[Rfam]
RNA: mir-9195 microRNA precursor family
RNA sequence: AGAGGCCCUUCAUGGCUGUGGUGGAAUGCUUGCCUCGUCGCUGCAGCGAUGAAGCAAGCAUUCCACCAGGCCAUUCAUGCUGCCUGC
Numbered sequence: 001a002g003a004g005g006c007c008c009u010u011c012a013u014g015g016c017u018g019u020g021g022u023g024g025a026a027u028g029c030u031u032g033c034c035u036c037g038u039c040g041c042u043g044c045a046g047c048g049a050u051g052a053a054g055c056a057a058g059c060a061u062u063c064c065a066c067c068a069g070g071c072c073a074u075u076c077a078u079g080c081u082g083c084c085u086g087c
Stems, first nucleotide, its partner, number of pairs: 004084003012074006020067014037050005